[Rfam]
RNA sequence: GUUUGGGUGAUGACUUCAGCAUUUGUCGGAUACCCCUUCACUCGUCUUCUGAGUGAGAAUUGCGGUCUGACAAAC
Numbered sequence: 001g002u003u004u005g006g007g008u009g010a011u012g013a014c015u016u017c018a019g020c021a022u023u024u025g026u027c028g029g030a031u032a033c034c035c036c037u038u039c040a041c042u043c044g045u046c047u048u049c050u051g052a053g054u055g056a057g058a059a060u061u062g063c064g065g066u067c068u069g070a071c072a073a074a075c
Stems, first nucleotide, its partner, number of pairs: 001075005
Dot-bracket structure: (((((.................................................................)))))

Background
A member of the RNA family "Small nucleolar RNA SNORD101" from Arenaria interpres, 75 nucleotides long. It scores 73 bits against the family's covariance model. The family's consensus secondary structure was predicted with PFOLD. Its family is annotated with nucleolus and RNA processing in the Gene Ontology. On this family, see Vitali et al., Nucleic Acids Res 2003: "Identification of 13 novel human modification guide RNAs".